[Rfam]
RNA sequence: GCUGUAAUGAUGAUCCCCAUGCGUGUCAACUGACUCCAGAGUUUCCUGUGUUCCUCUGCCACAUCUCUACGUUCUGUUGAGAUGUGAACAGGGUUCAUGGAUCUCUGGAGGCAUGAUCUGACUUCACUGACCUGAACACAGC
Numbered sequence: 001g002c003u004g005u006a007a008u009g010a011u012g013a014u015c016c017c018c019a020u021g022c023g024u025g026u027c028a029a030c031u032g033a034c035u036c037c038a039g040a041g042u043u044u045c046c047u048g049u050g051u052u053c054c055u056c057u058g059c060c061a062c063a064u065c066u067c068u069a070c071g072u073u074c075u076g077u078u079g080a081g082a083u084g085u086g087a088a089c090a091g092g093g094u095u096c097a098u099g100g101a102u103c104u105c106u107g108g109a110g111g112c113a114u115g116a117u118c119u120g121a122c123u124u125c126a127c128u129g130a131c132c133u134g135a136a137c138a139c140a141g142c
Base pairs, nucleotide, nucleotide: 001142002141003140004139044100045099047097048096050094051093052092